The record is a 72-nucleotide RNA from Spinacia oleracea, which matches "Small nucleolar RNA Z105" in Rfam. A search with the family's covariance model found it, with a score of 54 bits. NCBI's taxonomy places the organism under Eukaryota, Viridiplantae, Gunneridae, Amaranthaceae, Spinacia. The base pairs follow the family's consensus structure, which was predicted with CMfinder. The family's RNA type in Rfam is C/D-box small nucleolar RNA. On this family, see Chen et al., Nucleic Acids Res 2003: "The high diversity of snoRNAs in plants: identification and comparative study of 120 snoRNA genes from Oryza sativa".
[Rfam]
RNA sequence: GCAUAAUGAUGAUGAAUUUAUUUAUUAAACCGACAAAUUCAUGAAUGGAUAAAAACCUCCUACUCAUUCUGA
Dot-bracket structure: .....((((....................((..(........)...))...............)))).....